[Rfam]
RNA: Class I RNA from Dictyostelium
Organism: Dictyostelium discoideum
RNA sequence: GUUGACCUUACAGCAAUCUUAACAAAAUUUUUUCUGAAUAAAAAAACCUAAGUCAACUG
Numbered sequence: 001g002u003u004g005a006c007c008u009u010a011c012a013g014c015a016a017u018c019u020u021a022a023c024a025a026a027a028u029u030u031u032u033u034c035u036g037a038a039u040a041a042a043a044a045a046a047c048c049u050a051a052g053u054c055a056a057c058u059g
Base pairs, nucleotide, nucleotide: 001057002056003055004054005053006052